[Rfam]
The record is a 127-nucleotide sequence from Arabidopsis lyrata, which matches "MIR859 microRNA precursor family" in Rfam. NCBI's taxonomy places the organism under Eukaryota, Tracheophyta, Spermatophyta, eudicotyledons, Arabidopsis. Gene Ontology terms of the family: miRNA-mediated post-transcriptional gene silencing and RISC complex.

RNA sequence: AUAGAUAGAUGUCGAAAUCUCUCCGUUGUAAAAUCAAACAUGAGUAUGAAUUUAACCAUGAAGGGAUAUUUUUGAUUCGUAUACUCAUGUUUGAUUUUACAAUAGAUAGAUAUCGACGCCUAUCUCU
Numbered sequence: 001a002u003a004g005a006u007a008g009a010u011g012u013c014g015a016a017a018u019c020u021c022u023c024c025g026u027u028g029u030a031a032a033a034u035c036a037a038a039c040a041u042g043a044g045u046a047u048g049a050a051u052u053u054a055a056c057c058a059u060g061a062a063g064g065g066a067u068a069u070u071u072u073u074g075a076u077u078c079g080u081a082u083a084c085u086c087a088u089g090u091u092u093g094a095u096u097u098u099a100c101a102a103u104a105g106a107u108a109g110a111u112a113u114c115g116a117c118g119c120c121u122a123u124c125u126c127u
Stems, first nucleotide, its partner, number of pairs: 001127001003125006010118006017111004022106002025103022047079006054072001